[Rfam]
RNA sequence: GCGGCGUGCCGGCUCCGUUCACCGGAGAAGCUUACUGCGGACCAACGCCGUGUGCUUCCUCGUCGAACGGUGGCGACCGCGCUGC
Number, nucleotide and partner (000 for none) at each position: 001g085002c084003g083004g082005c081006g080007u079008g078009c000010c000011g000012g074013c073014u072015c070016c069017g068018u067019u066020c065021a000022c000023c062024g061025g060026a000027g058028a057029a056030g055031c054032u000033u052034a051035c050036u000037g048038c047039g046040g000041a000042c000043c000044a000045a000046c039047g038048c037049c000050g035051u034052g033053u000054g031055c030056u029057u028058c027059c000060u025061c024062g023063u000064c000065g020066a019067a018068c017069g016070g015071u000072g014073g013074c012075g000076a000077c000078c008079g007080c006081g005082c004083u003084g002085c001